[Rfam]
RNA sequence: AUCACCCCUUUGUGAAAUAUUGUCAGGUGGGAAGUAGGAGAACAGCUCAGGACAAGUGUAGUUUCUGUUCUUAUCAGUUUAAUACCUGAUAGGCCCCCGGGGGGGGCUGUGUAUUAAAUUGAUUUUUUGUAUGCAGCGCUGGAUCAGGGGCUUUCCUCUUCCACUCCUACAUUGACCUUGUAUUGCAGUGUUUCCAGGACCAGUGCGCCACCC
Number, nucleotide and partner (000 for none) at each position: 001a000002u000003c000004a000005c000006c000007c051008c050009u049010u000011u000012g046013u000014g000015a000016a000017a000018u000019a000020u000021u000022g000023u000024c000025a000026g000027g000028u000029g000030g000031g000032a000033a000034g000035u000036a000037g000038g000039a000040g000041a000042a000043c000044a000045g000046c012047u000048c000049a009050g008051g007052a000053c000054a000055a000056g000057u000058g000059u000060a000061g000062u000063u000064u000065c000066u000067g000068u000069u000070c000071u000072u091073a090074u089075c088076a087077g086078u000079u000080u000081a000082a000083u000084a000085c000086c077087u076088g075089a074090u073091a072092g107093g000094c105095c104096c103097c102098c000099g000100g000101g000102g097103g096104g095105g094106g000107c092108u000109g000110u000111g000112u000113a000114u000115u000116a000117a000118a000119u000120u000121g000122a000123u000124u000125u000126u000127u000128u000129g000130u000131a000132u000133g000134c000135a000136g166137c000138g164139c000140u000141g161142g160143a000144u000145c000146a000147g158148g157149g156150g155151c000152u000153u000154u000155c150156c149157u148158c147159u000160u142161c141162c000163a000164c138165u000166c136167c000168u000169a000170c205171a204172u203173u202174g201175a000176c198177c197178u196179u000180g194181u000182a000183u000184u000185g000186c000187a000188g000189u000190g000191u000192u000193u000194c180195c000196a178197g177198g176199a000200c000201c174202a173203g172204u171205g170206c000207g000208c000209c000210a000211c000212c000213c000
The record is a 213-nucleotide sequence from Atractosteus spatula, which matches "U2 spliceosomal RNA" in Rfam. Rfam describes the family as follows. U2 is a small nuclear RNA (snRNA) component of the spliceosome (involved in pre-mRNA splicing). The family's consensus secondary structure is taken from published work. The match comes from Rfam's covariance-model search (94 bits). Clan: U2 clan.